[Rfam]
RNA: Nuclear RNase P
Organism: Pediculus humanus
RNA sequence: GCCAGUGAUAAUCUUACUUAGGGGUUUACAUACGAAGUGCUUGUCACUUGAAUAACGACCUCGGGAAGGUCUGAGAAAGGGCCGUCAUAUAACAUUCUAGCAGGAUGACGUGAUAAUAGCGUGCGAGGGAACCAGAAACAGUCCGAAUUCAGAAUUAGUCGGGGACAUCAUUCUUGUGAUUGAUUGAGACAAAGUUCUGUAAUUCGUUGGAACCCCUCGUGGCCAGAUAUUUAAGUGCAAUCCGUAAGGUGGUCUCUCAUAUUGACCAUAACUCAAUUCAGACUAGUCUGUCACUGGC
Numbered sequence: 001g002c003c004a005g006u007g008a009u010a011a012u013c014u015u016a017c018u019u020a021g022g023g024g025u026u027u028a029c030a031u032a033c034g035a036a037g038u039g040c041u042u043g044u045c046a047c048u049u050g051a052a053u054a055a056c057g058a059c060c061u062c063g064g065g066a067a068g069g070u071c072u073g074a075g076a077a078a079g080g081g082c083c084g085u086c087a088u089a090u091a092a093c094a095u096u097c098u099a100g101c102a103g104g105a106u107g108a109c110g111u112g113a114u115a116a117u118a119g120c121g122u123g124c125g126a127g128g129g130a131a132c133c134a135g136a137a138a139c140a141g142u143c144c145g146a147a148u149u150c151a152g153a154a155u156u157a158g159u160c161g162g163g164g165a166c167a168u169c170a171u172u173c174u175u176g177u178g179a180u181u182g183a184u185u186g187a188g189a190c191a192a193a194g195u196u197c198u199g200u201a202a203u204u205c206g207u208u209g210g211a212a213c214c215c216c217u218c219g220u221g222g223c224c225a226g227a228u229a230u231u232u233a234a235g236u237g238c239a240a241u242c243c244g245u246a247a248g249g250u251g252g253u254c255u256c257u258c259a260u261a262u263u264g265a266c267c268a269u270a271a272c273u274c275a276a277u278u279c280a281g282a283c284u285a286g287u288c289u290g291u292c293a294c295u296g297g298c
Stems, first nucleotide, its partner, number of pairs: 001298004008291003013248005021062005035049005071281005080224004093107005108122004123220007144206006249269006